[Rfam]
RNA sequence: AUGAUGUCAUGAGGAGAGGGCGCAUUCAUGCGACGCCGAAGGAGCAAGCGAACAGUGAAUCUCUCAGGCAAAAAGACUCGUGGCAGACG
Numbered sequence: 001a002u003g004a005u006g007u008c009a010u011g012a013g014g015a016g017a018g019g020g021c022g023c024a025u026u027c028a029u030g031c032g033a034c035g036c037c038g039a040a041g042g043a044g045c046a047a048g049c050g051a052a053c054a055g056u057g058a059a060u061c062u063c064u065c066a067g068g069c070a071a072a073a074a075g076a077c078u079c080g081u082g083g084c085a086g087a088c089g
Stems, first nucleotide, its partner, number of pairs: 006084008021032003035069003038065002042063003048056002
The family of this 89-nucleotide RNA sequence from Sporolactobacillus shoreae is "Glycine riboswitch aptamer".
From the family's description: This family represents the bacterial glycine riboswitch.
The organism belongs to Sporolactobacillus, within Bacteria.